[Rfam]
RNA sequence: CCUCUCGAAACAUGUCUAAGCAUGACCUCGACCGAGAAUGAUAGUGAGGUAGAGCACCUAUUGGAAAUCCCGGGGAAGAAAUUCCUCGCUUUCCUGUAAAACUCCAAACUCCCUAUCUUUGUAGACGUCGGGCAGUCCGGGCUACGGGGUAAGCUUGUAGUCCGUAAGGGAGACAACCCAGACCAUGGUUAAUGCCCCCCAAUGUAGGCUAAGUGUCAACACUGAAUGAAGUCCUAGGUCAAAGACAACUGGAAGGUGAGCUCAGAAGCAGCUAUCCUUUAAAAAGUGCGUAACAGCUUACCAGUCAAGAUUUAGGGCGCAGAAAAUGGACGGGGCUCAAGCCUACUGCAGAUACCAUGGCGCACGUUUUUGAACGUGAUCGAGUAGAGAGGCGUCCUGUAUGGGCUGAAGCAGGGGUGUAAGUUCCUGUGGACCGUAUAGGAAUGAGAAU
Numbered sequence: 001c002c003u004c005u006c007g008a009a010a011c012a013u014g015u016c017u018a019a020g021c022a023u024g025a026c027c028u029c030g031a032c033c034g035a036g037a038a039u040g041a042u043a044g045u046g047a048g049g050u051a052g053a054g055c056a057c058c059u060a061u062u063g064g065a066a067a068u069c070c071c072g073g074g075g076a077a078g079a080a081a082u083u084c085c086u087c088g089c090u091u092u093c094c095u096g097u098a099a100a101a102c103u104c105c106a107a108a109c110u111c112c113c114u115a116u117c118u119u120u121g122u123a124g125a126c127g128u129c130g131g132g133c134a135g136u137c138c139g140g141g142c143u144a145c146g147g148g149g150u151a152a153g154c155u156u157g158u159a160g161u162c163c164g165u166a167a168g169g170g171a172g173a174c175a176a177c178c179c180a181g182a183c184c185a186u187g188g189u190u191a192a193u194g195c196c197c198c199c200c201a202a203u204g205u206a207g208g209c210u211a212a213g214u215g216u217c218a219a220c221a222c223u224g225a226a227u228g229a230a231g232u233c234c235u236a237g238g239u240c241a242a243a244g245a246c247a248a249c250u251g252g253a254a255g256g257u258g259a260g261c262u263c264a265g266a267a268g269c270a271g272c273u274a275u276c277c278u279u280u281a282a283a284a285a286g287u288g289c290g291u292a293a294c295a296g297c298u299u300a301c302c303a304g305u306c307a308a309g310a311u312u313u314a315g316g317g318c319g320c321a322g323a324a325a326a327u328g329g330a331c332g333g334g335g336c337u338c339a340a341g342c343c344u345a346c347u348g349c350a351g352a353u354a355c356c357a358u359g360g361c362g363c364a365c366g367u368u369u370u371u372g373a374a375c376g377u378g379a380u381c382g383a384g385u386a387g388a389g390a391g392g393c394g395u396c397c398u399g400u401a402u403g404g405g406c407u408g409a410a411g412c413a414g415g416g417g418u419g420u421a422a423g424u425u426c427c428u429g430u431g432g433a434c435c436g437u438a439u440a441g442g443a444a445u446g447a448g449a450a451u
Stems, first nucleotide, its partner, number of pairs: 001392006011024005026135001027132006036120003040117005046111002052105001053103002059098003063094005072087006139163009168179003183360007193350003202347001204346006227321002231318010248305005254278003259273003279283001284299001288297002361382002363378005393446001395443010411430008
RNA: Archaeal large subunit ribosomal RNA, nucleotides 905 to 1355